[Rfam]
RNA sequence: UUUUAGCCCCGAUGGAAGCGGCAUCCCACGCUUUUUUGCGUGGAUACAGCGGACAGCGGGAAUAGCU
Numbered sequence: 001u002u003u004u005a006g007c008c009c010c011g012a013u014g015g016a017a018g019c020g021g022c023a024u025c026c027c028a029c030g031c032u033u034u035u036u037u038g039c040g041u042g043g044a045u046a047c048a049g050c051g052g053a054c055a056g057c058g059g060g061a062a063u064a065g066c067u
Stems, first nucleotide, its partner, number of pairs: 009059003013055002018050002023045004028041004
Record summary: The family of this 67-nucleotide RNA from Flavobacterium sp. GT3R68 is "Flavo-1 RNA". Pairs were carried over by alignment from the consensus structure, which is taken from published work. It scores 58 bits against the family's covariance model.